[Rfam]
RNA sequence: UGUGGUAGACAGGGGUCAAAACAGAAGUGUUUGUGUCACAACCCUGUCAGAUUACUAUGGAUCAGCAAUUUCUGCU
Numbered sequence: 001u002g003u004g005g006u007a008g009a010c011a012g013g014g015g016u017c018a019a020a021a022c023a024g025a026a027g028u029g030u031u032u033g034u035g036u037c038a039c040a041a042c043c044c045u046g047u048c049a050g051a052u053u054a055c056u057a058u059g060g061a062u063c064a065g066c067a068a069u070u071u072c073u074g075c076u
Stems, first nucleotide, its partner, number of pairs: 014043003020076001022074005027039003048065001050063004
RNA: Mammalian CPEB3 ribozyme